[Rfam]
Nucleotides: 068
Stems, first nucleotide, its partner, number of pairs: 004065001006063001010059003015054003020050007029041001
Number, partner (000 for none) and nucleotide at each position: 001000a002000c003000a004065a005000g006063a007000a008000u009000c010059g011058g012057a013000c014000u015054g016053u017052c018000g019000g020050u021049c022048u023047a024046c025045c026044g027000a028000g029041c030000a031000a032000a033000u034000a035000u036000c037000a038000c039000c040000c041029g042000g043000c044026c045025g046024g047023u048022g049021g050020a051000a052017g053016a054015u055000c056000u057012u058011c059010c060000u061000u062000u063006u064000g065004u066000c067000g068000u